[Rfam]
RNA sequence: CUGCUGUAGCUUCGCUGAUGUGCGACGGAGUCCGUAGCUGCAGUAGAGAGUUUGAGACGUCCAUCGCACCGUAGACUGAAAUGGUCUGCGGCCCGAAACACGGGAGAGAACGCUGAGCGUUACAAC
Numbered sequence: 001c002u003g004c005u006g007u008a009g010c011u012u013c014g015c016u017g018a019u020g021u022g023c024g025a026c027g028g029a030g031u032c033c034g035u036a037g038c039u040g041c042a043g044u045a046g047a048g049a050g051u052u053u054g055a056g057a058c059g060u061c062c063a064u065c066g067c068a069c070c071g072u073a074g075a076c077u078g079a080a081a082u083g084g085u086c087u088g089c090g091g092c093c094c095g096a097a098a099c100a101c102g103g104g105a106g107a108g109a110a111c112g113c114u115g116a117g118c119g120u121u122a123c124a125a126c
Base pairs, nucleotide, nucleotide: 001046002045003044004043005042006041007040008039009038010037011036069091070090071089072088073087074086075085076084077083078082